[Rfam]
RNA sequence: UCACAUCGUCGCGACUGGCGCACGGCGAGACACGCCGAAGGUGGAGUACCACCAGGGAGCGACACCCAACCAGCAGACUUUAGGUCGAACGCCUGGGCCGCGAAG
Numbered sequence: 001u002c003a004c005a006u007c008g009u010c011g012c013g014a015c016u017g018g019c020g021c022a023c024g025g026c027g028a029g030a031c032a033c034g035c036c037g038a039a040g041g042u043g044g045a046g047u048a049c050c051a052c053c054a055g056g057g058a059g060c061g062a063c064a065c066c067c068a069a070c071c072a073g074c075a076g077a078c079u080u081u082a083g084g085u086c087g088a089a090c091g092c093c094u095g096g097g098c099c100g101c102g103a104a105g
Stems, first nucleotide, its partner, number of pairs: 008063005015056002017093004041052004083099004
RNA: ZMP/ZTP riboswitch aptamer (pfl RNA motif)